[Rfam]
RNA sequence: GGCGUAAAGCGUGCGCAGGCGGUUAUGUAAGACAGGCGUGAAAUCCCCGGGCUUAACCUGGGAAUUGCGCUUGUGACUGCAUAGCUAGAGUAUGUCAGAGGGGGGUAGAAUUCCACGUGUAGCAGUGAAAUGCGUAGAGAUGUGGAGGAAUACCAAUGGCGAAGGCAGCCCCCUGGGAUAAUACUGACGCUCAUGCACGAAAGCGUGGGGAGCAAACAGGAUUAGAUACCCUGGUAGUCCACGCCCUAAACGAUGCUGACUAGUUGUUCGGGAAUUUAUUCCUGAGUAACGUAGCUAACGCGUGAAGUCAGCCGCCUGGGGAGUACGGUCGCAAGAUUAAAACUCAAAGGAAU
Numbered sequence: 001g002g003c004g005u006a007a008a009g010c011g012u013g014c015g016c017a018g019g020c021g022g023u024u025a026u027g028u029a030a031g032a033c034a035g036g037c038g039u040g041a042a043a044u045c046c047c048c049g050g051g052c053u054u055a056a057c058c059u060g061g062g063a064a065u066u067g068c069g070c071u072u073g074u075g076a077c078u079g080c081a082u083a084g085c086u087a088g089a090g091u092a093u094g095u096c097a098g099a100g101g102g103g104g105g106u107a108g109a110a111u112u113c114c115a116c117g118u119g120u121a122g123c124a125g126u127g128a129a130a131u132g133c134g135u136a137g138a139g140a141u142g143u144g145g146a147g148g149a150a151u152a153c154c155a156a157u158g159g160c161g162a163a164g165g166c167a168g169c170c171c172c173c174u175g176g177g178a179u180a181a182u183a184c185u186g187a188c189g190c191u192c193a194u195g196c197a198c199g200a201a202a203g204c205g206u207g208g209g210g211a212g213c214a215a216a217c218a219g220g221a222u223u224a225g226a227u228a229c230c231c232u233g234g235u236a237g238u239c240c241a242c243g244c245c246c247u248a249a250a251c252g253a254u255g256c257u258g259a260c261u262a263g264u265u266g267u268u269c270g271g272g273a274a275u276u277u278a279u280u281c282c283u284g285a286g287u288a289a290c291g292u293a294g295c296u297a298a299c300g301c302g303u304g305a306a307g308u309c310a311g312c313c314g315c316c317u318g319g320g321g322a323g324u325a326c327g328g329u330c331g332c333a334a335g336a337u338u339a340a341a342a343c344u345c346a347a348a349g350g351a352a353u
Base pairs, nucleotide, nucleotide: 001316002315003314009313011198012197013196014195018191019190020189022085023084024083025082026081027080028079030078031077032074033073034072035071036070037069038068039067040066046062047061048060049059050058051057089185090184091183093180094179095178096177100174101173102172103171104170105169106168107151111147112146113145114144115143116142117141118140122133123132124131159166160165203244204243205242206241207240208239212238213237217233218232219231220230255312256311257310258309259308260307263290264289265288266287267286268285269284270283271282272281273280274279294301295300318345319344320343327338328337329336330335
The family of this 353-nucleotide part of an RNA from Polynucleobacter victoriensis is "Bacterial small subunit ribosomal RNA". Gene Ontology terms of the family: structural constituent of ribosome and ribosome. The organism belongs to Polynucleobacter, within Bacteria. Its Rfam clan is "SSU clan".